RNA sequence: UAUUGAGUCCCUACUAUGUUCCAGGCACCUACGAUACCCAGUGCCUGGAACAUAGUAGGGACUCAAUA
Numbered sequence: 001u002a003u004u005g006a007g008u009c010c011c012u013a014c015u016a017u018g019u020u021c022c023a024g025g026c027a028c029c030u031a032c033g034a035u036a037c038c039c040a041g042u043g044c045c046u047g048g049a050a051c052a053u054a055g056u057a058g059g060g061a062c063u064c065a066a067u068a
Stems, first nucleotide, its partner, number of pairs: 001068028

mir-3116 microRNA precursor family: a 68-nucleotide RNA from Homo sapiens. The sequence is in the family's curated seed alignment. The source organism's lineage runs through Eukaryota, Eumetazoa, Sarcopterygii, Eutheria and Homo.